[Rfam]
RNA sequence: ACUCGAUAAGGGCAACCCGGACGAAAGUCUGCGGACGCAAAGCUAUAGGGGCUUAGGCGCAGGAGAGCAGCGCUAUGCCAGCCAGUUGUCGAA
Numbered sequence: 001a002c003u004c005g006a007u008a009a010g011g012g013c014a015a016c017c018c019g020g021a022c023g024a025a026a027g028u029c030u031g032c033g034g035a036c037g038c039a040a041a042g043c044u045a046u047a048g049g050g051g052c053u054u055a056g057g058c059g060c061a062g063g064a065g066a067g068c069a070g071c072g073c074u075a076u077g078c079c080a081g082c083c084a085g086u087u088g089u090c091g092a093a
Stems, first nucleotide, its partner, number of pairs: 012038002017033001018031005041087004048083002050079003057073004
RNA: c-di-GMP-I riboswitch aptamer